[Rfam]
Source information: The family of this 87-nucleotide RNA from Tetranychus urticae is "mir-87 microRNA precursor family". Taxonomically the source falls in Tetranychus (Eukaryota, Eumetazoa, Arthropoda, Acari). The base pairs follow the family's consensus structure, which was predicted with RNAalifold. For this family Rfam cites "Temporal regulation of microRNA expression in Drosophila melanogaster mediated by hormonal signals and broad-Complex gene activity" (Sempere et al., Dev Biol, 2003). The match comes from Rfam's covariance-model search (51 bits).

RNA sequence: GUUGAACGUGCCCGAUACUUUGUCUCAACCUGAGAGUUUUAAUCUUGCAAAUGAAAAAGGUGAGCAAAGUUUCAGGUGUGUUUGGUG
Numbered sequence: 001g002u003u004g005a006a007c008g009u010g011c012c013c014g015a016u017a018c019u020u021u022g023u024c025u026c027a028a029c030c031u032g033a034g035a036g037u038u039u040u041a042a043u044c045u046u047g048c049a050a051a052u053g054a055a056a057a058a059g060g061u062g063a064g065c066a067a068a069g070u071u072u073c074a075g076g077u078g079u080g081u082u083u084g085g086u087g
Base pairs, nucleotide, nucleotide: 002085003084004083005082006081007080009078010077011076012075014073015072017070018069019068020067021066024064025063026062027061029060030059031058